[Rfam]
RNA sequence: AUACAAAAUUAAUCGUGCGGAUUAAUAAUCCAGGACUAUAAAACCGUGUUGUUUAUAUCGAGUCUCUUUUGGUAUAAGCGUCAAGUCCAUCGGAGAGAUCAUCAUUUUGUUCAUCUUAAUGCCCUUUUGUGUAGGAAAUUGAGGGAAGCUUAGGCUUCUCAACAUUUUAAGACGCCUAUGCAAGGGCUGGUAGGACAGACAUGC
Numbered sequence: 001a002u003a004c005a006a007a008a009u010u011a012a013u014c015g016u017g018c019g020g021a022u023u024a025a026u027a028a029u030c031c032a033g034g035a036c037u038a039u040a041a042a043a044c045c046g047u048g049u050u051g052u053u054u055a056u057a058u059c060g061a062g063u064c065u066c067u068u069u070u071g072g073u074a075u076a077a078g079c080g081u082c083a084a085g086u087c088c089a090u091c092g093g094a095g096a097g098a099u100c101a102u103c104a105u106u107u108u109g110u111u112c113a114u115c116u117u118a119a120u121g122c123c124c125u126u127u128u129g130u131g132u133a134g135g136a137a138a139u140u141g142a143g144g145g146a147a148g149c150u151u152a153g154g155c156u157u158c159u160c161a162a163c164a165u166u167u168u169a170a171g172a173c174g175c176c177u178a179u180g181c182a183a184g185g186g187c188u189g190g191u192a193g194g195a196c197a198g199a200c201a202u203g204c
Stems, first nucleotide, its partner, number of pairs: 008026007029094003033088004051079012114195005121187005128182008139170004143160001145158005

Annotation:
Rfam assigns this 204-nucleotide RNA from Saccharomyces cerevisiae to the family "Small nucleolar RNA snR35". NCBI's taxonomy places the organism under Eukaryota, Dikarya, Ascomycota, Saccharomycotina, Saccharomyces cerevisiae. It is one of the family's seed sequences.